[Rfam]
A member of the RNA family "U4atac minor spliceosomal RNA" from Oreochromis aureus, 129 nucleotides long. On this family, see Shukla et al., Nucleic Acids Res 2002: "Domains of human U4atac snRNA required for U12-dependent splicing in vivo". NCBI's taxonomy places the organism under Eukaryota, Metazoa, Chordata, Cichlomorphae, Oreochromis. U4atac is an essential component of the minor U12-type spliceosome complex which is required for removal of the rarer class of eukaryotic introns (AT-AC, U12-type). Rfam classes the family as a spliceosomal small nuclear RNA.
RNA sequence: ACUUUCCUUGUCAUGGGGUGAGAGAACUGCUCAAUGAACGCUUAGUGAGAGCAGUCCAGCUGACACCAUACCAACAACACAUACGCAUCGCCUGGCGCCUGUCCAGAGUUUGGUGCACUUUUUGGAAAC
Dot-bracket structure: .....((((.....)))).(.....(((((((.....((.....))..)))))))....)........................((((((.(((((....)).)))....)))))).............
Numbered sequence: 001a002c003u004u005u006c007c008u009u010g011u012c013a014u015g016g017g018g019u020g021a022g023a024g025a026a027c028u029g030c031u032c033a034a035u036g037a038a039c040g041c042u043u044a045g046u047g048a049g050a051g052c053a054g055u056c057c058a059g060c061u062g063a064c065a066c067c068a069u070a071c072c073a074a075c076a077a078c079a080c081a082u083a084c085g086c087a088u089c090g091c092c093u094g095g096c097g098c099c100u101g102u103c104c105a106g107a108g109u110u111u112g113g114u115g116c117a118c119u120u121u122u123u124g125g126a127a128a129c
Stems, first nucleotide, its partner, number of pairs: 006018004020060001026055007038046002085116006092106003095102002